RNA sequence: GAAGCAAUGAUGAGAUGAAGCACUGGAUGUGUUUUGGGGCAGUGGACGGUAUCAUUUGGUCUCGCCGUGAGCCUUUAUAACUUAUAAACGACUUCUCCUUCCACUGAGCUGU
Numbered sequence: 001g002a003a004g005c006a007a008u009g010a011u012g013a014g015a016u017g018a019a020g021c022a023c024u025g026g027a028u029g030u031g032u033u034u035u036g037g038g039g040c041a042g043u044g045g046a047c048g049g050u051a052u053c054a055u056u057u058g059g060u061c062u063c064g065c066c067g068u069g070a071g072c073c074u075u076u077a078u079a080a081c082u083u084a085u086a087a088a089c090g091a092c093u094u095c096u097c098c099u100u101c102c103a104c105u106g107a108g109c110u111g112u
Stems, first nucleotide, its partner, number of pairs: 001112001003110003
Shown here is a 112-nucleotide RNA sequence from Ziziphus jujuba, a member of the family "Small nucleolar RNA Z152/R70/R12/". The literature on the family includes a 2001 paper in J Mol Biol by Barneche et al., "Identification of 66 box C/D snoRNAs in Arabidopsis thaliana: extensive gene duplications generated multiple isoforms predicting new ribosomal RNA 2'-O-methylation sites". The base pairs follow the family's consensus structure, which was predicted with PFOLD. The family has 9 seed sequences and 604 matches in Rfam 15.1. The match comes from Rfam's covariance-model search (86 bits).